[Rfam]
RNA sequence: UAAUUUAUUUAGAGCAGAUCCUCAUCUAAAUAUGACAGACUUACAUCCAACUGCCCAUAAUCAUCUAUUAUCAUAAGCUUGACUGCAUGAUUGACGCUCAUAAAACAUAUUUAAAAAAUAAUUUAUAAAAUUAUAAU
Numbered sequence: 001u002a003a004u005u006u007a008u009u010u011a012g013a014g015c016a017g018a019u020c021c022u023c024a025u026c027u028a029a030a031u032a033u034g035a036c037a038g039a040c041u042u043a044c045a046u047c048c049a050a051c052u053g054c055c056c057a058u059a060a061u062c063a064u065c066u067a068u069u070a071u072c073a074u075a076a077g078c079u080u081g082a083c084u085g086c087a088u089g090a091u092u093g094a095c096g097c098u099c100a101u102a103a104a105a106c107a108u109a110u111u112u113a114a115a116a117a118a119u120a121a122u123u124u125a126u127a128a129a130a131u132u133a134u135a136a137u
Base pairs, nucleotide, nucleotide: 004135006133007132008130009129012126014124018122019121025116027113028112029111030110031109
RNA: MIR480 microRNA precursor family
Organism: Populus deltoides